[Rfam]
RNA sequence: CGACUUUAAAAAAAAAAAAUUACACGUUAUAAGAUAAAUGUCUCUUUAGGGACUAUGGUAAUAAACGCGCAUGUAAUAAGCGGAUCGGACCCGGGGGCGGUACCCGGCGACUCCACCAUAAUCCAUCAUUUGUGGAGUUUGGGGUCGAAAUAGGAUCGACGGACGUCUAAAGAUGUUAGCUUUUGCCCGGUGCGGUGUCGCUGUUAUCGACCCAUUUAAGCUAGUUGCAAAUGACAACAAAGCACCGAUGGCUUUGGCUGCGUAAGCGGUCCGAAAUAUUGGAACCUUAAGUCUUAGGCCUGCGGUCUAAGCGGGGUCCGGAGGUACCUGGCAACAGAAACCUCCACU
Number, nucleotide and partner (000 for none) at each position: 001c000002g000003a000004c000005u000006u000007u000008a000009a000010a000011a000012a000013a000014a000015a000016a000017a000018a000019a000020u000021u000022a000023c000024a000025c000026g000027u000028u000029a000030u000031a000032a000033g000034a000035u000036a000037a000038a000039u000040g053041u052042c051043u050044c049045u000046u000047u000048a000049g044050g043051g042052a041053c040054u000055a000056u000057g187058g186059u185060a184061a183062u000063a000064a000065a000066c000067g180068c179069g176070c175071a174072u173073g000074u000075a000076a000077u000078a000079a000080g000081c165082g164083g000084a000085u162086c161087g160088g000089a000090c000091c107092c106093g105094g104095g103096g000097g000098c000099g000100g000101u000102a000103c095104c094105c093106g092107g091108c147109g146110a145111c144112u143113c142114c141115a000116c000117c000118a000119u000120a000121a000122u000123c000124c000125a000126u000127c000128a000129u000130u000131u000132g000133u000134g000135g000136a000137g000138u000139u000140u000141g114142g113143g112144g111145u110146c109147g108148a000149a000150a000151u000152a000153g000154g000155a000156u000157c000158g000159a000160c087161g086162g085163a000164c082165g081166u000167c000168u000169a000170a000171a000172g000173a072174u071175g070176u069177u000178a000179g068180c067181u000182u000183u061184u060185g059186c058187c057188c203189g202190g201191u200192g000193c000194g213195g212196u000197g211198u210199c209200g191201c190202u189203g188204u000205u000206a000207u000208c000209g199210a198211c197212c195213c194214a000215u000216u000217u000218a000219a000220g000221c000222u000223a000224g000225u000226u000227g000228c000229a000230a000231a000232u000233g000234a000235c000236a000237a000238c000239a000240a000241a000242g000243c000244a000245c000246c000247g000248a000249u000250g000251g000252c000253u000254u000255u000256g000257g000258c000259u000260g000261c000262g000263u000264a000265a000266g000267c000268g000269g000270u000271c000272c000273g000274a000275a000276a000277u000278a000279u000280u000281g000282g000283a000284a000285c000286c000287u000288u000289a000290a000291g000292u000293c000294u000295u000296a000297g000298g000299c000300c000301u000302g000303c000304g000305g000306u000307c000308u000309a000310a000311g000312c000313g000314g329315g328316g327317u326318c000319c000320g345321g344322a343323g342324g341325u340326a317327c316328c315329u314330g000331g000332c000333a000334a000335c000336a000337g000338a000339a000340a325341c324342c323343u322344c321345c320346a000347c000348u000
RNA: Alphaproteobacteria transfer-messenger RNA
Organism: Rhodobacterales bacterium HTCC2255